[Rfam]
RNA sequence: CUCUUAUCAAGAGCGGCGGAGGGAUAGGCCCUAUGAUGCCCGGCAACCAGUAGGUGAUGAACUUACUAAGGUGCUAAUUCCUACAGAUUCUUACUUGGAUCUGGCAGAUAAGGG
Numbered sequence: 001c002u003c004u005u006a007u008c009a010a011g012a013g014c015g016g017c018g019g020a021g022g023g024a025u026a027g028g029c030c031c032u033a034u035g036a037u038g039c040c041c042g043g044c045a046a047c048c049a050g051u052a053g054g055u056g057a058u059g060a061a062c063u064u065a066c067u068a069a070g071g072u073g074c075u076a077a078u079u080c081c082u083a084c085a086g087a088u089u090c091u092u093a094c095u096u097g098g099a100u101c102u103g104g105c106a107g108a109u110a111a112g113g114g
Stems, first nucleotide, its partner, number of pairs: 001114008013041001015040003021031003025083004042075004047071002049067006079106001084103006

Rfam assigns this 114-nucleotide RNA to the family "SAM riboswitch aptamer (S box leader)".